[Rfam]
RNA sequence: AUUGUUCACUCUCCCUCAAGGGCUUCCGGCAGUGCCAGACAUAUGCGUGAAUGGCGAGCUGGAGGUCCUCGGGGAGAGUGGACAAUAU
Numbered sequence: 001a002u003u004g005u006u007c008a009c010u011c012u013c014c015c016u017c018a019a020g021g022g023c024u025u026c027c028g029g030c031a032g033u034g035c036c037a038g039a040c041a042u043a044u045g046c047g048u049g050a051a052u053g054g055c056g057a058g059c060u061g062g063a064g065g066u067c068c069u070c071g072g073g074g075a076g077a078g079u080g081g082a083c084a085a086u087a088u
Base pairs, nucleotide, nucleotide: 006081007080008079009078010077011076012075013074014073015072017071019069020068021067022066023065024064025063026062027061028060

About this RNA
The family of this 88-nucleotide RNA sequence from Manihot esculenta is "MIR473 microRNA precursor family". The match comes from Rfam's covariance-model search (67 bits). Rfam links the family to the GO terms miRNA-mediated post-transcriptional gene silencing and RISC complex. For this family Rfam cites "Novel and mechanical stress-responsive MicroRNAs in Populus trichocarpa that are absent from Arabidopsis" (Lu et al., Plant Cell, 2005).